[Rfam]
RNA sequence: AUGACUUAAACUUAUGAGUAAGGAAAAUAACAAUUCAGGGGGACGCCCGGAUCCUCACUGCUAAUAUGAGACAAAUUUUUCAUUGGGUAAAGGUUGCCCUCAGGUGACCCACCUACUUUGCGGGAUGCCUGGGAGUCGAAAUCUACCCG
Numbered sequence: 001a002u003g004a005c006u007u008a009a010a011c012u013u014a015u016g017a018g019u020a021a022g023g024a025a026a027a028u029a030a031c032a033a034u035u036c037a038g039g040g041g042g043a044c045g046c047c048c049g050g051a052u053c054c055u056c057a058c059u060g061c062u063a064a065u066a067u068g069a070g071a072c073a074a075a076u077u078u079u080u081c082a083u084u085g086g087g088u089a090a091a092g093g094u095u096g097c098c099c100u101c102a103g104g105u106g107a108c109c110c111a112c113c114u115a116c117u118u119u120g121c122g123g124g125a126u127g128c129c130u131g132g133g134a135g136u137c138g139a140a141a142u143c144u145a146c147c148c149g
Stems, first nucleotide, its partner, number of pairs: 005022004033052004038047002054070004084149005091144005097138001099133002102130005108124003112120001

A member of the RNA family "U12 minor spliceosomal RNA" from Carlito syrichta, 149 nucleotides long.
Rfam classes the family as a spliceosomal small nuclear RNA.
Lineage of the source: Eukaryota > Chordata > Mammalia > Theria > Carlito.
For this family Rfam cites "Pre-mRNA splicing: the discovery of a new spliceosome doubles the challenge" (Tarn and Steitz, Trends Biochem Sci, 1997).
Pairs were carried over by alignment from the consensus structure.